[Rfam]
RNA: Bacterial large subunit ribosomal RNA, nucleotides 2080 to 2678
RNA sequence: AAGUACCCGUGAAGAUACGGGUUACCCGCGACAGGACAAAAAGACCCCGUGGAGCUUUACUACAGCUUGACACUGGCUCGGGGCUACGUAUGCGUAGGAUAGGUGGGAGCCUGUGAAGCCCCUCUUGCGGGAGGGGUGGAGGCGCCGGUGAAAUACCACUCUUACGUGGCCUUGAGCCUAACCGGGCAACCGGGACAGUGUCUGGCGGGUAGUUUGACUGGGGCGGUCGCCUCCUAAAAGGUAACGGAGGCGCCCAAAGGUUCCCUCAGGCCGAAUGGAAACCGGCCGGUGAGCGCAAAGGCAUAAGGGAGCUUGACUGCAAGGCCGACAAGCCGAGCAGGGACGAAAGUCGGGCUUAGUGAUCCCACGGUACCGCGUGGAAGGGCCGUGGCCUAACGGAUAGAAGCUACCCCGGGGAUAACAGGCUGAUCCUGCCCAAGAGUUCACAUCGACGGCAGGGUUUGGCACCUCGAUGUCGGCUCGUCUCAUCCUGGGGCCGGAGUAGGUCCCAAGGGUUGGGCUGUUCGCCCAUUAAAGAGGCACGCGAGCUGGGUUCAGAACGUCGUGAGACAGUUCGGUCUCUAUCCGUCGCGGGCGCA
Number, nucleotide and partner (000 for none) at each position: 001a000002a000003g000004u000005a022006c021007c020008c019009g018010u000011g000012a000013a000014g000015a000016u000017a000018c009019g008020g007021g006022u005023u000024a000025c595026c594027c593028g592029c591030g590031a589032c588033a000034g587035g586036a585037c000038a000039a581040a000041a000042a000043g000044a000045c000046c416047c415048c414049g413050u000051g412052g411053a408054g407055c406056u405057u404058u000059a213060c212061u211062a210063c000064a000065g000066c205067u204068u000069g202070a201071c200072a199073c000074u000075g178076g177077c176078u175079c174080g173081g172082g171083g170084c169085u168086a167087c166088g165089u164090a163091u000092g161093c000094g000095u000096a000097g000098g000099a000100u000101a000102g160103g159104u158105g157106g156107g000108a000109g143110c142111c141112u000113g000114u000115g000116a000117a000118g137119c136120c135121c134122c133123u132124c131125u130126u000127g000128c000129g000130g125131g124132a123133g122134g121135g120136g119137u118138g000139g000140a000141g111142g110143c109144g000145c000146c000147g000148g000149u000150g000151a000152a000153a000154u000155a000156c106157c105158a104159c103160u102161c092162u000163u090164a089165c088166g087167u086168g085169g084170c083171c082172u081173u080174g079175a078176g077177c076178c075179u000180a000181a000182c193183c192184g191185g000186g000187c000188a000189a000190c000191c184192g183193g182194g000195a000196c000197a000198g000199u072200g071201u070202c069203u000204g067205g066206c000207g000208g000209g000210u062211a061212g060213u059214u000215u000216g228217a227218c226219u225220g000221g000222g000223g000224c000225g219226g218227u217228c216229g251230c250231c249232u248233c247234c246235u000236a000237a000238a000239a000240g000241g000242u000243a000244a000245c000246g234247g233248a232249g231250g230251c229252g397253c000254c354255c353256a000257a000258a000259g000260g312261u311262u310263c309264c308265c307266u292267c291268a000269g287270g286271c285272c284273g283274a000275a000276u000277g000278g000279a000280a000281a000282c000283c273284g272285g271286c270287c269288g000289g000290u000291g267292a266293g302294c301295g000296c000297a000298a000299a000300g000301g294302c293303a000304u000305a000306a000307g265308g264309g263310a262311g261312c260313u000314u000315g000316a000317c340318u339319g338320c337321a000322a000323g334324g333325c332326c000327g000328a000329c000330a000331a000332g325333c324334c323335g000336a000337g320338c319339a318340g317341g000342g351343a350344c349345g000346a000347a000348a000349g344350u343351c342352g000353g255354g254355c000356u000357u000358a000359g000360u000361g000362a000363u000364c000365c391366c390367a389368c388369g387370g386371u385372a000373c384374c383375g000376c000377g000378u000379g000380g000381a000382a000383g374384g373385g371386c370387c369388g368389u367390g366391g365392c000393c000394u000395a000396a000397c252398g000399g000400a000401u000402a000403g000404a057405a056406g055407c054408u053409a000410c000411c052412c051413c049414g048415g047416g046417g000418a000419u000420a000421a000422c000423a000424g000425g466426c465427u464428g000429a463430u460431c459432c458433u457434g456435c455436c454437c000438a000439a000440g450441a449442g000443u000444u000445c000446a000447c000448a000449u441450c440451g000452a000453c000454g436455g435456c434457a433458g432459g431460g430461u000462u000463u429464g427465g426466c425467a000468c000469c000470u000471c000472g000473a000474u000475g000476u000477c552478g550479g549480c548481u547482c544483g541484u540485c539486u538487c537488a000489u000490c515491c514492u000493g510494g509495g508496g507497c506498c505499g000500g000501a000502g000503u000504a000505g498506g497507u496508c495509c494510c493511a000512a000513g000514g491515g490516u000517u531518g530519g529520g528521c527522u000523g000524u000525u000526c000527g521528c520529c519530c518531a517532u000533u000534a000535a000536a000537g487538a486539g485540g484541c483542a000543c000544g482545c000546g000547a481548g480549c479550u478551g000552g477553g000554u000555u000556c000557a000558g576559a575560a574561c573562g571563u570564c569565g000566u000567g000568a000569g564570a563571c562572a000573g561574u560575u559576c558577g000578g000579u000580c000581u039582c000583u000584a000585u036586c035587c034588g032589u031590c030591g029592c028593g027594g026595g025596c000597g000598c000599a000